[Rfam]
RNA: nrdJ RNA
RNA sequence: AUCUGCUCCGGGUGCUGCGCGCGGCGUCCGAAGCAUCAGACACAGAACGUGCCCCGGGAAGUUCUGGGCACUGCAGGGCGUU
Numbered sequence: 001a002u003c004u005g006c007u008c009c010g011g012g013u014g015c016u017g018c019g020c021g022c023g024g025c026g027u028c029c030g031a032a033g034c035a036u037c038a039g040a041c042a043c044a045g046a047a048c049g050u051g052c053c054c055c056g057g058g059a060a061g062u063u064c065u066g067g068g069c070a071c072u073g074c075a076g077g078g079c080g081u082u
Stems, first nucleotide, its partner, number of pairs: 004035004009030008049071006056064001